[Rfam]
RNA: Glutamine riboswitch aptamer (glnA leader)
RNA sequence: AUCGUUCAUCUCCAGAUCAUUCUCUUCGGAAGCUGGAAGACGGAAGUAGGGAUUAUCCCCAAGGAACGCGCC
Numbered sequence: 001a002u003c004g005u006u007c008a009u010c011u012c013c014a015g016a017u018c019a020u021u022c023u024c025u026u027c028g029g030a031a032g033c034u035g036g037a038a039g040a041c042g043g044a045a046g047u048a049g050g051g052a053u054u055a056u057c058c059c060c061a062a063g064g065a066a067c068g069c070g071c072c
Base pairs, nucleotide, nucleotide: 003068004067005066006065007064009040010039011038013036043069049059050058051057